[Rfam]
RNA sequence: GUCACAGGUGGCGCGGCAUUGGCAAAUGCAGCGUCGAAAUGCGCAAUACCUAAACGAAGACGGUAGACAAG
Numbered sequence: 001g002u003c004a005c006a007g008g009u010g011g012c013g014c015g016g017c018a019u020u021g022g023c024a025a026a027u028g029c030a031g032c033g034u035c036g037a038a039a040u041g042c043g044c045a046a047u048a049c050c051u052a053a054a055c056g057a058a059g060a061c062g063g064u065a066g067a068c069a070a071g
Stems, first nucleotide, its partner, number of pairs: 009036006016029005

A member of the RNA family "sucC RNA" from Zestomonas carbonaria, 71 nucleotides long.
NCBI's taxonomy places the organism under Bacteria, Pseudomonadota, Gammaproteobacteria, Pseudomonadaceae, Zestomonas.
It is annotated as a cis-regulatory element.
A search with the family's covariance model found it, with a score of 74 bits.